[Rfam]
RNA sequence: ACAACCUUUUUGCUUAAUCAUAUGAGCGGGGGAACCAUUUUUGAUAGAUAUUUUCUAUCUUGGGGUGAAUCUUAAUAUAGAAUUUCUAUAUUAAGAGGGGCUACUCUCUAUCCCUAAUCCGACAGCUAACCUCGUAAGCACUUUAAGAGAGAAGGG
Numbered sequence: 001a002c003a004a005c006c007u008u009u010u011u012g013c014u015u016a017a018u019c020a021u022a023u024g025a026g027c028g029g030g031g032g033a034a035c036c037a038u039u040u041u042u043g044a045u046a047g048a049u050a051u052u053u054u055c056u057a058u059c060u061u062g063g064g065g066u067g068a069a070u071c072u073u074a075a076u077a078u079a080g081a082a083u084u085u086c087u088a089u090a091u092u093a094a095g096a097g098g099g100g101c102u103a104c105u106c107u108c109u110a111u112c113c114c115u116a117a118u119c120c121g122a123c124a125g126c127u128a129a130c131c132u133c134g135u136a137a138g139c140a141c142u143u144u145a146a147g148a149g150a151g152a153a154g155g156g
Base pairs, nucleotide, nucleotide: 011140012139013138014137018025019024026135027134028133029132030131031130036062037061063120064119065118071095072094073093074092075091076090077089078088079087080086081085098114099113100112